[Rfam]
RNA: RNase MRP
Organism: Hevea brasiliensis
Nucleotides: 232
Stems, first nucleotide, its partner, number of pairs: 002232002004229008014184006030217003034214004048059004061074005077152003083148006100141001102139002111133004121126001186201006
Number, partner (000 for none) and nucleotide at each position: 001000c002232a003231c004229c005228c006227a007226g008225g009224g010223g011222g012000u013000g014184g015183a016182g017181u018180g019179g020000u021000u022000a023000c024000c025000c026000a027000g028000g029000a030217a031216a032215g033000u034214c035213c036212c037211c038000g039000g040000g041000c042000c043000c044000u045000u046000u047000c048059u049058g050057c051056a052000g053000a054000g055000a056051u057050g058049c059048a060000g061074u062073c063072c064071c065070g066000g067000a068000a069000u070065c071064g072063g073062g074061a075000a076000g077152g078151c079150u080000u081000u082000g083148a084147g085146g086145u087144a088143u089000g090000g091000a092000a093000u094000u095000c096000g097000a098000u099000c100141g101000c102139a103138a104000u105000u106000g107000g108000c109000g110000a111133g112132g113131g114130c115000u116000g117000a118000g119000a120000c121126a122000a123000g124000u125000u126121u127000g128000g129000a130114g131113c132112c133111c134000u135000c136000g137000a138103u139102u140000u141100c142000u143088g144087u145086a146085c147084c148083u149000g150079a151078g152077c153000c154000a155000c156000a157000g158000u159000g160000g161000c162000c163000g164000u165000u166000g167000c168000u169000u170000c171000a172000c173000a174000g175000u176000u177000a178000u179019u180018c181017a182016c183015u184014c185000a186201g187200c188199c189198c190197g191196c192000u193000c194000u195000a196191g197190u198189g199188g200187g201186u202000u203000a204000a205000c206000a207000g208000a209000a210000c211037g212036g213035g214034g215032c216031u217030u218000a219000c220000g221000g222011c223010c224009u225008c226007c227006u228005g229004g230000u231003g232002u